[Rfam]
The record is a 59-nucleotide sequence from Corynebacterium testudinoris, which matches "msiK RNA" in Rfam.
RNA sequence: CUUACCCACCUCUCACUACGGAUCGUUCGGCGCGUACCCGCCGAUGGAGGCAUCACUUU
Numbered sequence: 001c002u003u004a005c006c007c008a009c010c011u012c013u014c015a016c017u018a019c020g021g022a023u024c025g026u027u028c029g030g031c032g033c034g035u036a037c038c039c040g041c042c043g044a045u046g047g048a049g050g051c052a053u054c055a056c057u058u059u
Stems, first nucleotide, its partner, number of pairs: 009050004014046002027044006

It scores 49 bits against the family's covariance model. It is annotated as a cis-regulatory element. Lineage of the source: Bacteria > Bacillati > Actinomycetes > Mycobacteriales > Corynebacterium. Pairs were carried over by alignment from the consensus structure, which is taken from published work.